[Rfam]
RNA sequence: UAGGGGUGAAAGAGGAAUUCUCAUAUAUGCUUGGGGAUAUGGCCCAAGUGUUUCUACCGGGAAACCGUAAAUUUCCUGACUAUGAGAAGAGCCUCGUUUAGG
Numbered sequence: 001u002a003g004g005g006g007u008g009a010a011a012g013a014g015g016a017a018u019u020c021u022c023a024u025a026u027a028u029g030c031u032u033g034g035g036g037a038u039a040u041g042g043c044c045c046a047a048g049u050g051u052u053u054c055u056a057c058c059g060g061g062a063a064a065c066c067g068u069a070a071a072u073u074u075c076c077u078g079a080c081u082a083u084g085a086g087a088a089g090a091g092c093c094u095c096g097u098u099u100a101g102g
Base pairs, nucleotide, nucleotide: 018088019087020086021085022084023083024082025081029049030048031047032046033045034044035043058078059077060076061075062074063073064072

About this RNA:
The family of this 102-nucleotide RNA sequence from Thermoflavimicrobium dichotomicum is "Purine riboswitch aptamer". Taxonomically the source falls in Thermoflavimicrobium (Bacteria, Bacillota, Caryophanales, Thermoactinomycetaceae). The match comes from Rfam's covariance-model search (86 bits).